[Rfam]
Rfam assigns this 360-nucleotide RNA from Dysgonomonas gade to the family "Bacterial RNase P class A".
It is annotated as a ribozyme.
The literature on the family includes a 1999 paper in Nucleic Acids Res by Brown, "The Ribonuclease P Database".
The family's consensus secondary structure is taken from published work.
Gene Ontology terms of the family: ribonuclease P activity, tRNA processing and dimeric ribonuclease P complex.
RNA sequence: ACAGUAGGCCGGUUUGCCGCUGGCUGCCGUAAGGCGGAAAGAGGAAAGUCCGGGCAACACAGAGCAUCGUACUUCUUAAUGGGAAGCUGCUUGUGAGGGCAGAGUUGAAGGUAACAGAGAAUAACCGCCCCUUCGGGGGUAAGGGUGAAAAGGCGGGGUAAGAGCCCACCGCCCGUGCAGCAAUGUAUCGGGGCCGUACCACUUGCGAGUUGUAAGACCAUGUAUACCGGCGCAUGUAGGGCUGCUCGCCCGAUGCCGGGGGGUAGGUCGCUAGAGCCUGCCGGUGACGGCUGGCGUAGAUAAAUGGCAAACACCUUGCCUGGCAAGGAACAGAACCCGGCUUACAGGCCUGCUGUAUUU
Numbered sequence: 001a002c003a004g005u006a007g008g009c010c011g012g013u014u015u016g017c018c019g020c021u022g023g024c025u026g027c028c029g030u031a032a033g034g035c036g037g038a039a040a041g042a043g044g045a046a047a048g049u050c051c052g053g054g055c056a057a058c059a060c061a062g063a064g065c066a067u068c069g070u071a072c073u074u075c076u077u078a079a080u081g082g083g084a085a086g087c088u089g090c091u092u093g094u095g096a097g098g099g100c101a102g103a104g105u106u107g108a109a110g111g112u113a114a115c116a117g118a119g120a121a122u123a124a125c126c127g128c129c130c131c132u133u134c135g136g137g138g139g140u141a142a143g144g145g146u147g148a149a150a151a152g153g154c155g156g157g158g159u160a161a162g163a164g165c166c167c168a169c170c171g172c173c174c175g176u177g178c179a180g181c182a183a184u185g186u187a188u189c190g191g192g193g194c195c196g197u198a199c200c201a202c203u204u205g206c207g208a209g210u211u212g213u214a215a216g217a218c219c220a221u222g223u224a225u226a227c228c229g230g231c232g233c234a235u236g237u238a239g240g241g242c243u244g245c246u247c248g249c250c251c252g253a254u255g256c257c258g259g260g261g262g263g264u265a266g267g268u269c270g271c272u273a274g275a276g277c278c279u280g281c282c283g284g285u286g287a288c289g290g291c292u293g294g295c296g297u298a299g300a301u302a303a304a305u306g307g308c309a310a311a312c313a314c315c316u317u318g319c320c321u322g323g324c325a326a327g328g329a330a331c332a333g334a335a336c337c338c339g340g341c342u343u344a345c346a347g348g349c350c351u352g353c354u355g356u357a358u359u360u
Stems, first nucleotide, its partner, number of pairs: 001356010011345001012312007020041002024037005046343003050340005055212004062247004067208005072086005087102001089100004103203002111199003125144002127140005152170002155167003171194001172192004177186003216269004227259005239251004276295003280291004